[Rfam]
RNA sequence: CCAGCUAAAACAAAAAGACAAUGAAAACAAUGCUCAUAAAUACAUAUUGGUGGUGGCGCCCGUUACAACUCCGACAGUCGUAAGGGAGCAGCGCUCGUAUGUAUAUAUGUGAACAUAAUAUAGAUUAAGAAAGAGCCCUGUC
Numbered sequence: 001c002c003a004g005c006u007a008a009a010a011c012a013a014a015a016a017g018a019c020a021a022u023g024a025a026a027a028c029a030a031u032g033c034u035c036a037u038a039a040a041u042a043c044a045u046a047u048u049g050g051u052g053g054u055g056g057c058g059c060c061c062g063u064u065a066c067a068a069c070u071c072c073g074a075c076a077g078u079c080g081u082a083a084g085g086g087a088g089c090a091g092c093g094c095u096c097g098u099a100u101g102u103a104u105a106u107a108u109g110u111g112a113a114c115a116u117a118a119u120a121u122a123g124a125u126u127a128a129g130a131a132a133g134a135g136c137c138c139u140g141u142c
Stems, first nucleotide, its partner, number of pairs: 036108003040104008049095004056089002059086003066080001068078003
This 142-nucleotide sequence from Bacteroides cellulosilyticus belongs to the Rfam family "Bacteroidete tryptophan peptide leader RNA". Rfam classes the family as a cis-regulatory leader. Pairs were carried over by alignment from the consensus structure, which is taken from published work. A search with the family's covariance model found it, with a score of 100 bits. The source organism's lineage runs through Bacteria, Pseudomonadati, Bacteroidaceae, Bacteroides and Bacteroides cellulosilyticus.